[Rfam]
Nucleotides: 220
Stems, first nucleotide, its partner, number of pairs: 004037004019025001063075003083200008092192001093156010107115002118142006160191003166186001168177001
Number, partner (000 for none) and nucleotide at each position: 001000c002000a003000c004037g005036g006035u007034c008000a009000c010000a011000u012000g013000g014000a015000g016000u017000a018000g019025c020000c021000a022000a023000g024000u025019g026000c027000g028000a029000a030000a031000g032000a033000c034007g035006a036005c037004c038000g039000a040000u041000g042000u043000a044000a045000a046000a047000g048000g049000a050000g051000c052000u053000g054000c055000a056000c057000u058000u059000c060000c061000c062000u063075g064074g065073g066000u067000g068000a069000g070000a071000a072000u073065c074064c075063c076000u077000a078000a079000a080000a081000c082000u083200g084199c085198u086197c087196u088195c089194c090193g091000a092192u093156g094155u095154c096153c097152u098151u099150a100149c101148a102147c103000g104000g105000a106000c107115g108114c109000u110000g111000c112000u113000u114108g115107c116000a117000u118142g119141g120140u121139g122138a123137g124000g125000a126000a127000u128000g129000u130000g131000c132000c133000u134000a135000a136000c137123c138122u139121c140120a141119u142118u143000u144000c145000a146000u147102g148101u149100g150099u151098a152097a153096g154095g155094a156093c157000a158000a159000c160191g161190c162189a163000c164000u165000u166186u167000a168177g169000a170000c171000g172000g173000c174000a175000c176000c177168c178000a179000a180000c181000a182000a183000g184000a185000c186166a187000u188000u189162u190161g191160u192092a193090c194089g195088g196087a197086g198085g199084g200083c201000g202000a203000a204000u205000a206000u207000u208000u209000u210000g211000a212000c213000a214000a215000g216000u217000c218000a219000g220000g

Rfam assigns this 220-nucleotide RNA to the family "RT-2 RNA". It is annotated as a small RNA.